[Rfam]
RNA: mir-166 microRNA precursor family
RNA sequence: GUUGAGGGGAAUGUCGUCUGGUUCGAGAUCAUUCAUGUAAGUAGUCUCAGACGUAACCCUUUGGGUGAUUUCGGACCAGGCUUCAUUCCCCUCAGC
Numbered sequence: 001g002u003u004g005a006g007g008g009g010a011a012u013g014u015c016g017u018c019u020g021g022u023u024c025g026a027g028a029u030c031a032u033u034c035a036u037g038u039a040a041g042u043a044g045u046c047u048c049a050g051a052c053g054u055a056a057c058c059c060u061u062u063g064g065g066u067g068a069u070u071u072c073g074g075a076c077c078a079g080g081c082u083u084c085a086u087u088c089c090c091c092u093c094a095g096c
Base pairs, nucleotide, nucleotide: 001096002095003094004093005092006091007090008089009088010087011086012085013084016081017080018079019078020077021076024073025072026071